[Rfam]
RNA sequence: GCCAAGGCUUUUCAGGAGCUUGGCAUCUCGGGCGCCGGCGGGUGUCCGGCGCUCUUAUGGUUACGUUGCUCAAUGGAGGAUGUAGCUAUGAGAA
Dot-bracket structure: ((((((.((.......))))))))......((((((((.......))))))))((((((.(((((((.(((....)))))))))).))))))..

The record is a 94-nucleotide sequence from Microvirga thermotolerans, which matches "Repression of heat shock gene expression (ROSE) element" in Rfam.
About the family: This family represents a 5' UTR cis-regulatory element found in heat shock mRNAs and is known as the ROSE (repression of heat shock gene expression) element.
On this family, see Nocker et al., Nucleic Acids Res 2001: "A mRNA-based thermosensor controls expression of rhizobial heat shock genes".
By type it is an RNA thermoregulator.